[Rfam]
A member of the RNA family "DUF3800-VI RNA", 51 nucleotides long. Rfam classes the family as a cis-regulatory element. It is one of the family's seed sequences.
RNA sequence: GUUGGGAGCGCUGUCGAUCACGGUGCGUUGGACGAUUGUUCCACCUGGCUC
Numbered sequence: 001g002u003u004g005g006g007a008g009c010g011c012u013g014u015c016g017a018u019c020a021c022g023g024u025g026c027g028u029u030g031g032a033c034g035a036u037u038g039u040u041c042c043a044c045c046u047g048g049c050u051c
Base pairs, nucleotide, nucleotide: 001049002048003047004046005045006044008026009025010024011023012022013021014020029043030042031041032039